[Rfam]
RNA: Fluoride riboswitch aptamer (crcB RNA motif)
RNA sequence: UUCAAGAAAGGCUAUGACGUUAGCCUUUAAGCGCCCUCCGGGCUGAUAACGUCUGAUCUUUA
Numbered sequence: 001u002u003c004a005a006g007a008a009a010g011g012c013u014a015u016g017a018c019g020u021u022a023g024c025c026u027u028u029a030a031g032c033g034c035c036c037u038c039c040g041g042g043c044u045g046a047u048a049a050c051g052u053c054u055g056a057u058c059u060u061u062a
Stems, first nucleotide, its partner, number of pairs: 010025004016053006033043003